[Rfam]
Rfam assigns this 96-nucleotide RNA sequence to the family "ivy-DE RNA". The family's consensus secondary structure is taken from published work. The family's RNA type in Rfam is cis-regulatory element.
RNA sequence: GGGCCAGGGGGCCGGGAUGUUCGGGAUGCGUCAGGUCCUGAAUGCCCCAGGGGUACAGGGGGUACCUCCGCUACGGCGGGCCGGGCCAGGCAAAGC
Numbered sequence: 001g002g003g004c005c006a007g008g009g010g011g012c013c014g015g016g017a018u019g020u021u022c023g024g025g026a027u028g029c030g031u032c033a034g035g036u037c038c039u040g041a042a043u044g045c046c047c048c049a050g051g052g053g054u055a056c057a058g059g060g061g062g063u064a065c066c067u068c069c070g071c072u073a074c075g076g077c078g079g080g081c082c083g084g085g086c087c088a089g090g091c092a093a094a095g096c
Stems, first nucleotide, its partner, number of pairs: 002087004010082004014048003018044001020042008050068007